[Rfam]
RNA sequence: AUAAUACUAAUGUGCAAUUCAGGAAAAAGUAAACGAUGAUUCAUCAUCAACUCUACGUUAGAAUAAUGGAUUAGCAGGUAAAAUAUGUAUGUGAAUUCGGAUUAUACUGAGUUUACACUUCUUU
Numbered sequence: 001a002u003a004a005u006a007c008u009a010a011u012g013u014g015c016a017a018u019u020c021a022g023g024a025a026a027a028a029g030u031a032a033a034c035g036a037u038g039a040u041u042c043a044u045c046a047u048c049a050a051c052u053c054u055a056c057g058u059u060a061g062a063a064u065a066a067u068g069g070a071u072u073a074g075c076a077g078g079u080a081a082a083a084u085a086u087g088u089a090u091g092u093g094a095a096u097u098c099g100g101a102u103u104a105u106a107c108u109g110a111g112u113u114u115a116c117a118c119u120u121c122u123u124u
Stems, first nucleotide, its partner, number of pairs: 001040002004037002014030002057072001059070001090117011